Description:
Rfam assigns this 79-nucleotide RNA sequence from Chelonia mydas to the family "mir-16 microRNA precursor family". Its family is annotated with miRNA-mediated post-transcriptional gene silencing and RISC complex in the Gene Ontology. The family has 14 seed sequences and 4,705 matches in Rfam 15.1. The family's consensus secondary structure was predicted with PFOLD. It scores 37 bits against the family's covariance model. The organism belongs to Chelonia, within Eukaryota.
[Rfam]
RNA sequence: CUCCGCCAGCAGCAGCGCAGAAGUAAGGAUGGCAUGGGAUGGUAUUGCCACCCUUACUUCUGCGCUGCUGCGGGCCAGG
Numbered sequence: 001c002u003c004c005g006c007c008a009g010c011a012g013c014a015g016c017g018c019a020g021a022a023g024u025a026a027g028g029a030u031g032g033c034a035u036g037g038g039a040u041g042g043u044a045u046u047g048c049c050a051c052c053c054u055u056a057c058u059u060c061u062g063c064g065c066u067g068c069u070g071c072g073g074g075c076c077a078g079g
Stems, first nucleotide, its partner, number of pairs: 001079002005075003010072001011069008020059001022058007